[Rfam]
RNA: Bacterial RNase P class A
RNA sequence: GAAGCAGAAUAAAUGAUCGCGGGCGGCAGGCCGAAAGGUGCCGUCUGAGGAAAGUCCGGGCUUCAUAGGGCAGGAUGCCGGAUAACGUCCGGUGGAGGUGACUCCAAGGAUAGUGCAACAGAAAUGUACCGCCGGGAGCAUUCCCGGUAAGGUUGGAAGGGCAGUGUAAGAGACUACCGCCCGCCUGGUAACAGGCGGGGCAUAUGUAAACCCCAUCCGAAGCAAGACCGAACAGAAAGCGAUACGGCGGCCCGUCGUGCUUUCAGGUAGGUCGCUAGAGACCGGUGGCAACAUCGGUACCAGAUAGAUGAUCAUUCACGACAUAACCCGGCUUAUCGUUCCGCUUUAUUU
Numbered sequence: 001g002a003a004g005c006a007g008a009a010u011a012a013a014u015g016a017u018c019g020c021g022g023g024c025g026g027c028a029g030g031c032c033g034a035a036a037g038g039u040g041c042c043g044u045c046u047g048a049g050g051a052a053a054g055u056c057c058g059g060g061c062u063u064c065a066u067a068g069g070g071c072a073g074g075a076u077g078c079c080g081g082a083u084a085a086c087g088u089c090c091g092g093u094g095g096a097g098g099u100g101a102c103u104c105c106a107a108g109g110a111u112a113g114u115g116c117a118a119c120a121g122a123a124a125u126g127u128a129c130c131g132c133c134g135g136g137a138g139c140a141u142u143c144c145c146g147g148u149a150a151g152g153u154u155g156g157a158a159g160g161g162c163a164g165u166g167u168a169a170g171a172g173a174c175u176a177c178c179g180c181c182c183g184c185c186u187g188g189u190a191a192c193a194g195g196c197g198g199g200g201c202a203u204a205u206g207u208a209a210a211c212c213c214c215a216u217c218c219g220a221a222g223c224a225a226g227a228c229c230g231a232a233c234a235g236a237a238a239g240c241g242a243u244a245c246g247g248c249g250g251c252c253c254g255u256c257g258u259g260c261u262u263u264c265a266g267g268u269a270g271g272u273c274g275c276u277a278g279a280g281a282c283c284g285g286u287g288g289c290a291a292c293a294u295c296g297g298u299a300c301c302a303g304a305u306a307g308a309u310g311a312u313c314a315u316u317c318a319c320g321a322c323a324u325a326a327c328c329c330g331g332c333u334u335a336u337c338g339u340u341c342c343g344c345u346u347u348a349u350u351u
Base pairs, nucleotide, nucleotide: 001347002346003345004344005343007341008340009339010338011336012316013315014314015313016312017311018310020047021046022045023044024043025042026041027040028039052334053333054332056331057330058329059328060327061222062221063220064219068253069252070251071250073218074217075216076215077214078092079091080090081089082088093107094105095104096103097102108213109212113211114210115207116206117205129152130151131148132147133146134145135144136143137142160178161177163175164174165173179201180199181198182197183196184195185194186193187192226273227272228271229270235264236263237262238261239260240259244258245257246256247255248254281298282297283296284295285294286293287292